The family of this 84-nucleotide RNA from Microbacterium caowuchunii is "ZMP/ZTP riboswitch aptamer (pfl RNA motif)". The base pairs follow the family's consensus structure, which is taken from published work. It scores 58 bits against the family's covariance model.

RNA sequence: CGUUCGCGUCGCGACUGGCGUUGAGGUGGGCUACCACCGGGGAGCGACCGACACGGUAUCCGGCCGUACGCCUGGGCCGGUGCG
Numbered sequence: 001c002g003u004u005c006g007c008g009u010c011g012c013g014a015c016u017g018g019c020g021u022u023g024a025g026g027u028g029g030g031c032u033a034c035c036a037c038c039g040g041g042g043a044g045c046g047a048c049c050g051a052c053a054c055g056g057u058a059u060c061c062g063g064c065c066g067u068a069c070g071c072c073u074g075g076g077c078c079g080g081u082g083c084g
Stems, first nucleotide, its partner, number of pairs: 003053001008048005015041002017072005026037004061079005
Dot-bracket structure: ..(....(((((..(([[[[[....((((....))))..))..)))))....).......(((((..]]]]]..))))).....